[Rfam]
RNA sequence: GGAUAGCACUUUUUGCUAUCUCCAGCCAAUAACGCAAUGACACAUGAGAUAACUUUUCCAUGUAUCAUUGUGUUAUUGGUUGGGGAUAGCAAAAUAUUUUUAUCC
Numbered sequence: 001g002g003a004u005a006g007c008a009c010u011u012u013u014u015g016c017u018a019u020c021u022c023c024a025g026c027c028a029a030u031a032a033c034g035c036a037a038u039g040a041c042a043c044a045u046g047a048g049a050u051a052a053c054u055u056u057u058c059c060a061u062g063u064a065u066c067a068u069u070g071u072g073u074u075a076u077u078g079g080u081u082g083g084g085g086a087u088a089g090c091a092a093a094a095u096a097u098u099u100u101u102a103u104c105c
Stems, first nucleotide, its partner, number of pairs: 002104004011094009021084020042063005048057002
RNA: MIR6274 microRNA precursor family